[Rfam]
RNA sequence: GAAAACAGGGGAGCUUGUAUACAGGCUGAGAGGAAGUUGCGAACUUCGACCCAUAAACCUGAUGUGGAUAAUGCCAACGUAGGGAUACAGAAGUGGUAAAUU
Dot-bracket structure: .......(((..(((((....)))))......(((((.....)))))..))).....((((...(((......)))...))))...................
Numbered sequence: 001g002a003a004a005a006c007a008g009g010g011g012a013g014c015u016u017g018u019a020u021a022c023a024g025g026c027u028g029a030g031a032g033g034a035a036g037u038u039g040c041g042a043a044c045u046u047c048g049a050c051c052c053a054u055a056a057a058c059c060u061g062a063u064g065u066g067g068a069u070a071a072u073g074c075c076a077a078c079g080u081a082g083g084g085a086u087a088c089a090g091a092a093g094u095g096g097u098a099a100a101u102u
Stems, first nucleotide, its partner, number of pairs: 008052003013026005033047005058083004065076003

Rfam assigns this 102-nucleotide RNA sequence from Lachnospiraceae bacterium CAG:364 to the family "TPP riboswitch aptamer (THI element)". Its family is annotated with thiamine pyrophosphate binding in the Gene Ontology. NCBI's taxonomy places the organism under Bacteria, Bacillota, Clostridia, Lachnospirales, Lachnospiraceae. The base pairs follow the family's consensus structure, which is taken from published work.